The family of this 117-nucleotide RNA sequence from Tardiphaga sp. is "ALIL pseudoknot". The match comes from Rfam's covariance-model search (103 bits). Rfam classes the family as a cis-regulatory element. The organism belongs to Tardiphaga, within Bacteria. The family's consensus secondary structure is taken from published work.
RNA sequence: CGCUUAUUUUGCGAUGGCGGAGCUCGACCGCCGAUCCAAGCCAUGAUCGCCUUCAUUGACGAUCAUCGUGGGGCGCAUGAGGUCGCGGCGAUCUGCGAGGUCUUGCGGAUCGCCCCG
Numbered sequence: 001c002g003c004u005u006a007u008u009u010u011g012c013g014a015u016g017g018c019g020g021a022g023c024u025c026g027a028c029c030g031c032c033g034a035u036c037c038a039a040g041c042c043a044u045g046a047u048c049g050c051c052u053u054c055a056u057u058g059a060c061g062a063u064c065a066u067c068g069u070g071g072g073g074c075g076c077a078u079g080a081g082g083u084c085g086c087g088g089c090g091a092u093c094u095g096c097g098a099g100g101u102c103u104u105g106c107g108g109a110u111c112g113c114c115c116c117g
Stems, first nucleotide, its partner, number of pairs: 016032005078117002081114002089112002092109007